[Rfam]
RNA: nhaA-I RNA
RNA sequence: GGGUGUCACGCUGCGCAGUGCGGCGGGCAGGAAUGCGAUGGUCGGGCCGCCACG
Numbered sequence: 001g002g003g004u005g006u007c008a009c010g011c012u013g014c015g016c017a018g019u020g021c022g023g024c025g026g027g028c029a030g031g032a033a034u035g036c037g038a039u040g041g042u043c044g045g046g047c048c049g050c051c052a053c054g
Stems, first nucleotide, its partner, number of pairs: 005028003009025004036054002039052004